[Rfam]
RNA sequence: CUAUAACUUAAUUUAGUUAUGGCGGAAGGAG
Numbered sequence: 001c002u003a004u005a006a007c008u009u010a011a012u013u014u015a016g017u018u019a020u021g022g023c024g025g026a027a028g029g030a031g
Stems, first nucleotide, its partner, number of pairs: 001022008